FMN riboswitch aptamer (RFN element): a 175-nucleotide RNA sequence from Marinobacterium lutimaris.
RNA sequence: UUAAAUUCUCAGGGCGGGGCGAAAUUCCCCACCGGCGGUAUUUUUGUCUGCGCAGCCGUUUUCCUGGCACCAAGAGCGCAACGAAAGAGCCCGCGAGCGCCUGCCGAUGGCAGGGUCAGCAGAUCCGGUGAGAUGCCGGAGCCGACGGUUAAAGUCCGGAUGGAAGAGAUUUAGG
Numbered sequence: 001u002u003a004a005a006u007u008c009u010c011a012g013g014g015c016g017g018g019g020c021g022a023a024a025u026u027c028c029c030c031a032c033c034g035g036c037g038g039u040a041u042u043u044u045u046g047u048c049u050g051c052g053c054a055g056c057c058g059u060u061u062u063c064c065u066g067g068c069a070c071c072a073a074g075a076g077c078g079c080a081a082c083g084a085a086a087g088a089g090c091c092c093g094c095g096a097g098c099g100c101c102u103g104c105c106g107a108u109g110g111c112a113g114g115g116u117c118a119g120c121a122g123a124u125c126c127g128g129u130g131a132g133a134u135g136c137c138g139g140a141g142c143c144g145a146c147g148g149u150u151a152a153a154g155u156c157c158g159g160a161u162g163g164a165a166g167a168g169a170u171u172u173a174g175g
Stems, first nucleotide, its partner, number of pairs: 004172002007169004017029003031155002033144002035094004097120002124140005146158003

The family's consensus secondary structure is taken from published work. NCBI's taxonomy places the organism under Bacteria, Pseudomonadota, Gammaproteobacteria, Oceanospirillales, Marinobacterium.